[Rfam]
RNA: Group II catalytic intron D1-D4-1
Organism: Klebsiella pneumoniae
RNA sequence: CGCUGUUACAGGUAACUGUGGCGGUGAUAGAGCAGAAGUCAGCAGACGGCAUAGUAGCCAAAUGCCCAGCGUAAUGGCUGGGACACGGCCAAGGCC
Numbered sequence: 001c002g003c004u005g006u007u008a009c010a011g012g013u014a015a016c017u018g019u020g021g022c023g024g025u026g027a028u029a030g031a032g033c034a035g036a037a038g039u040c041a042g043c044a045g046a047c048g049g050c051a052u053a054g055u056a057g058c059c060a061a062a063u064g065c066c067c068a069g070c071g072u073a074a075u076g077g078c079u080g081g082g083a084c085a086c087g088g089c090c091a092a093g094g095c096c
Base pairs, nucleotide, nucleotide: 001026002025004023005022006021007020008019009018010017011016038047039046040045048096049095050094057089058088059087065082066081067080